[Rfam]
RNA: GA-cis RNA
Organism: Eubacterium sp. CAG:156
RNA sequence: UCAUGAAAGAAACAAAUAUAAAUGAAGUUUACUUUCAAAUGUUUCCCAUGAUUAGCCGCUGAACAAAGUGAUGCGACAAUACAUAUU
Number, nucleotide and partner (000 for none) at each position: 001u000002c000003a000004u000005g000006a000007a000008a000009g045010a044011a043012a042013c041014a000015a000016a000017u000018a000019u031020a030021a029022a028023u000024g000025a000026a000027g000028u022029u021030u020031a019032c000033u000034u000035u000036c000037a000038a000039a000040u000041g013042u012043u011044u010045c009046c000047c000048a000049u000050g000051a000052u000053u000054a000055g077056c000057c075058g000059c073060u000061g000062a000063a069064c068065a000066a000067a000068g064069u063070g000071a000072u000073g059074c000075g057076a000077c055078a000079a000080u000081a000082c000083a000084u000085a000086u000087u000